Shown here is a 102-nucleotide RNA sequence from Cohnella sp. AR92, a member of the family "Purine riboswitch aptamer".
RNA sequence: CGUAAAAAAGCGAAUCCUGCUCGUAUAUAGUCGGGGAUACGGCCCGAUCGUCUCUACCCGGAAACCUUAAAUUUUCGGACUACGAGCCCUAGCAUUGGAUAG
Numbered sequence: 001c002g003u004a005a006a007a008a009a010g011c012g013a014a015u016c017c018u019g020c021u022c023g024u025a026u027a028u029a030g031u032c033g034g035g036g037a038u039a040c041g042g043c044c045c046g047a048u049c050g051u052c053u054c055u056a057c058c059c060g061g062a063a064a065c066c067u068u069a070a071a072u073u074u075u076c077g078g079a080c081u082a083c084g085a086g087c088c089c090u091a092g093c094a095u096u097g098g099a100u101a102g
Base pairs, nucleotide, nucleotide: 019087020086021085022084023083024082025081030048031047032046033045034044035043058078059077060076061075062074063073064072